The record is a 129-nucleotide RNA sequence from Rousettus aegyptiacus, which matches "Small nucleolar RNA SNORA11" in Rfam. For this family Rfam cites "A novel experimental approach for systematic identification of box H/ACA snoRNAs from eukaryotes" (Gu et al., Nucleic Acids Res, 2005). U107 (SNORA11) is a member of the H/ACA class of snoRNAs that guide the sites of modification of uridines to pseudouridines. This snoRNA was identified by RT-PCR from blood cells and its expression confirmed by Northern blot analysis. There is no predicted target for this guide snRNA. The source organism's lineage runs through Eukaryota, Dipnotetrapodomorpha, Mammalia, Yinpterochiroptera and Rousettus. A search with the family's covariance model found it, with a score of 87 bits. By type it is an H/ACA-box small nucleolar RNA.
RNA sequence: GGGGUGUGAUCAGAGCAGGGCUCAUGAAGAAUGGUUUCUCUGUUUACAACACACCCUACAAGAAUUUGGGGUUACUCUUCACAGGUGGCAGGAUACUGUGACCUUCCUGUGACAUUAUGCCCUAUACAU
Dot-bracket structure: .(((((((....((((((((..(..........)...))))))))....)))))))............((((...(.(..((.(((.((((....)))).))).....)).).)....)))).......
Numbered sequence: 001g002g003g004g005u006g007u008g009a010u011c012a013g014a015g016c017a018g019g020g021c022u023c024a025u026g027a028a029g030a031a032u033g034g035u036u037u038c039u040c041u042g043u044u045u046a047c048a049a050c051a052c053a054c055c056c057u058a059c060a061a062g063a064a065u066u067u068g069g070g071g072u073u074a075c076u077c078u079u080c081a082c083a084g085g086u087g088g089c090a091g092g093a094u095a096c097u098g099u100g101a102c103c104u105u106c107c108u109g110u111g112a113c114a115u116u117a118u119g120c121c122c123u124a125u126a127c128a129u
Stems, first nucleotide, its partner, number of pairs: 002056007013045008023034001069122004076114001078112001081110002084103003088099004